[Rfam]
RNA: Small nucleolar RNA Z102/R77
Organism: Phtheirospermum japonicum
RNA sequence: GAAUGAGUUGAUGAUUAAAAUGAUUUGAUAGCUAAGAUGAUGGCUAUUUAUCAUGUAUUAGCUCUAGCUGAUCAUUC
Number, nucleotide and partner (000 for none) at each position: 001g000002a076003a075004u074005g073006a000007g000008u000009u000010g000011a000012u000013g000014a000015u000016u000017a000018a000019a000020a000021u000022g000023a000024u000025u000026u000027g047028a000029u000030a045031g044032c043033u042034a000035a000036g000037a000038u000039g000040a000041u000042g033043g032044c031045u030046a000047u027048u000049u000050a000051u000052c000053a000054u000055g000056u000057a000058u000059u000060a000061g000062c000063u000064c000065u000066a000067g000068c000069u000070g000071a000072u000073c005074a004075u003076u002077c000